[Rfam]
RNA sequence: CACUCAUCGAGACCGGCUGAGGGAAAGGCCCAUAGACGCCGGGGCAACCUGCAGGACUAACCAUCCUGAUAAGGUGCCAACUCCUGCGGAGCGCUCAGCGCUUCCGAGAGAUGAGGG
Numbered sequence: 001c002a003c004u005c006a007u008c009g010a011g012a013c014c015g016g017c018u019g020a021g022g023g024a025a026a027g028g029c030c031c032a033u034a035g036a037c038g039c040c041g042g043g044g045c046a047a048c049c050u051g052c053a054g055g056a057c058u059a060a061c062c063a064u065c066c067u068g069a070u071a072a073g074g075u076g077c078c079a080a081c082u083c084c085u086g087c088g089g090a091g092c093g094c095u096c097a098g099c100g101c102u103u104c105c106g107a108g109a110g111a112u113g114a115g116g117g
Stems, first nucleotide, its partner, number of pairs: 001117001003115006013042005021031003026085003043078004048074002052068005082109001087106005
RNA: SAM riboswitch aptamer (S box leader)
Organism: Woeseia oceani